[Rfam]
RNA sequence: GGGGAUGAUCGGUUUCGACGACGGUCGUGGAUUCAGGAGAAGCGGGUCGAGGAUGCACAGUCAUCUCGUCAACGCUCUGUGCGAACCAAUAGGUGCCGAUAACACUCGCACCGACUUCGCCCUCGCCGCCUGAGGCGAGCCUCGAAGUCCGUCAGCCCGGGGGAGCUUCCGCCCCGGUUCCUGGCGUCAUCUAGGAAGCCACUGCUGGGGCCCCUCGCCAUCGGGGGUCCCGGGACUUCAAGGUGGCUGAGCCCGUCGGCGUCCUUGUUCGCGUGAGACGCCGGGGCCGAGAAAAACAGCAGCGAACUGCACCCGGAGAAGUCCUGUUGCACCACCGUCGGACCGGGGUUCGAUUCCCCGCAUCUCCACCA
Numbered sequence: 001g002g003g004g005a006u007g008a009u010c011g012g013u014u015u016c017g018a019c020g021a022c023g024g025u026c027g028u029g030g031a032u033u034c035a036g037g038a039g040a041a042g043c044g045g046g047u048c049g050a051g052g053a054u055g056c057a058c059a060g061u062c063a064u065c066u067c068g069u070c071a072a073c074g075c076u077c078u079g080u081g082c083g084a085a086c087c088a089a090u091a092g093g094u095g096c097c098g099a100u101a102a103c104a105c106u107c108g109c110a111c112c113g114a115c116u117u118c119g120c121c122c123u124c125g126c127c128g129c130c131u132g133a134g135g136c137g138a139g140c141c142u143c144g145a146a147g148u149c150c151g152u153c154a155g156c157c158c159g160g161g162g163g164a165g166c167u168u169c170c171g172c173c174c175c176g177g178u179u180c181c182u183g184g185c186g187u188c189a190u191c192u193a194g195g196a197a198g199c200c201a202c203u204g205c206u207g208g209g210g211c212c213c214c215u216c217g218c219c220a221u222c223g224g225g226g227g228u229c230c231c232g233g234g235a236c237u238u239c240a241a242g243g244u245g246g247c248u249g250a251g252c253c254c255g256u257c258g259g260c261g262u263c264c265u266u267g268u269u270c271g272c273g274u275g276a277g278a279c280g281c282c283g284g285g286g287c288c289g290a291g292a293a294a295a296a297c298a299g300c301a302g303c304g305a306a307c308u309g310c311a312c313c314c315g316g317a318g319a320a321g322u323c324c325u326g327u328u329g330c331a332c333c334a335c336c337g338u339c340g341g342a343c344c345g346g347g348g349u350u351c352g353a354u355u356c357c358c359c360g361c362a363u364c365u366c367c368a369c370c371a
Stems, first nucleotide, its partner, number of pairs: 001367007019340007027332002030330001034326005043315005048068005054083007121147001123145003128140002150186006157177003161174003165199006205233009217247005251287004257283003262278002267307004344360005
The record is a 371-nucleotide sequence from Actinomyces glycerinitolerans, which matches "transfer-messenger RNA" in Rfam. Bacterial tmRNA, also known as 10Sa RNA or SsrA, is named for its dual tRNA and mRNA-like properties. Its role is to liberate the mRNA from a stalled ribosome. The source organism's lineage runs through Bacteria, Bacillati, Actinomycetota, Actinomycetaceae and Actinomyces. It scores 155 bits against the family's covariance model. The family's consensus secondary structure is taken from published work. A reference for the family is Felden et al. (1997), "Probing the structure of the Escherichia coli 10Sa RNA (tmRNA)", RNA.